Shown here is a 349-nucleotide sequence from Candidatus Competibacter denitrificans, a member of the family "Bacterial RNase P class A".
RNA sequence: GGAACCGGCUGGACGGUCGCUGUAUCGCUUGCGGUAUGGAGGAAAGUCCGGGCUCCACAGGACAGAGCGCCAGGUAACGCCUGGGCGGCGUAAGCCGACGGAAAGUGCCACAGAAAACACACCGCCUAAGUUCGCAAGAACCGGCAAGGGUGAAAAGGUGCGGUAAGAGCGCACCGCGCGACUGGCAACAGCCGUGGCAGGGUAAACCCCGCUCGGAGCAAGACCAAAUAGGGGGGCAUAUCGCGUGGUCCGCGCGGCUCCCGGGUAGGUCGCUACAGGCGCUUGGCGACAAGCGUCGCAGAGGAAUGACCGUCCUCGACAGAACCCGGCUUAUAGGCCGGUUCCUUUU
Number, nucleotide and partner (000 for none) at each position: 001g345002g344003a343004a342005c341006c340007g339008g338009c337010u336011g334012g314013a313014c312015g311016g310017u309018c308019g000020c039021u038022g037023u036024a035025u034026c033027g032028c000029u000030u000031g000032c027033g026034g025035u024036a023037u022038g021039g020040a000041g000042g000043a000044a332045a331046g330047u000048c329049c328050g327051g326052g325053c218054u217055c216056c215057a000058c000059a000060g251061g250062a249063c248064a000065g214066a213067g212068c211069g210070c084071c083072a082073g081074g080075u000076a000077a000078c000079g000080c074081c073082u072083g071084g070085g099086c097087g096088g095089c094090g000091u000092a000093a000094g089095c088096c087097g086098a000099c085100g209101g208102a000103a000104a000105g207106u206107g203108c202109c201110a000111c000112a000113g000114a000115a000116a000117a000118c000119a000120c000121a000122c149123c148124g145125c144126c143127u000128a000129a000130g141131u140132u139133c138134g000135c000136a000137a000138g133139a132140a131141c130142c000143g126144g125145c124146a000147a000148g123149g122150g000151u000152g000153a000154a000155a000156a000157g175158g174159u173160g172161c171162g170163g000164u000165a000166a000167g000168a000169g000170c162171g161172c160173a159174c158175c157176g198177c196178g195179c194180g193181a000182c191183u190184g189185g000186c000187a000188a000189c184190a183191g182192c000193c180194g179195u178196g177197g000198c176199a000200g000201g109202g108203u107204a000205a000206a106207c105208c101209c100210c069211g068212c067213u066214c065215g056216g055217a054218g053219c000220a000221a000222g271223a270224c269225c268226a000227a000228a000229u000230a000231g000232g262233g261234g260235g259236g258237c257238a000239u000240a000241u000242c256243g255244c254245g253246u252247g000248g063249u062250c061251c060252g246253c245254g244255c243256g242257g237258c236259u235260c234261c233262c232263g000264g000265g000266u000267a000268g225269g224270u223271c222272g000273c000274u000275a000276c000277a000278g297279g296280c295281g294282c293283u292284u291285g290286g000287c000288g000289a000290c285291a284292a283293g282294c281295g280296u279297c278298g000299c000300a000301g000302a000303g000304g000305a000306a000307u000308g018309a017310c016311c015312g014313u013314c012315c000316u000317c000318g000319a000320c000321a000322g000323a000324a000325c052326c051327c050328g049329g048330c046331u045332u044333a000334u011335a000336g010337g009338c008339c007340g006341g005342u004343u003344c002345c001346u000347u000348u000349u000